A member of the RNA family "mir-216 microRNA precursor family" from Albula glossodonta, 77 nucleotides long.
Gene Ontology terms of the family: miRNA-mediated post-transcriptional gene silencing and RISC complex.
The family is grouped with related families in Rfam's "mir-216 clan".
The match comes from Rfam's covariance-model search (59 bits).
A reference for the family is Lim et al. (2003), "Vertebrate microRNA genes", Science.
Lineage of the source: Eukaryota > Metazoa > Actinopterygii > Albulinae > Albula.
The family's consensus secondary structure was predicted with WAR.
[Rfam]
RNA sequence: CUCCGGCCAAAUCUCAGCUGGCAACUGUGAACCGUUCUCUCUGCACUCUCACAGUUGCUGCUGGGGUUAAGCUGGCA
Numbered sequence: 001c002u003c004c005g006g007c008c009a010a011a012u013c014u015c016a017g018c019u020g021g022c023a024a025c026u027g028u029g030a031a032c033c034g035u036u037c038u039c040u041c042u043g044c045a046c047u048c049u050c051a052c053a054g055u056u057g058c059u060g061c062u063g064g065g066g067u068u069a070a071g072c073u074g075g076c077a
Stems, first nucleotide, its partner, number of pairs: 003075005010068008020059003023055001026053005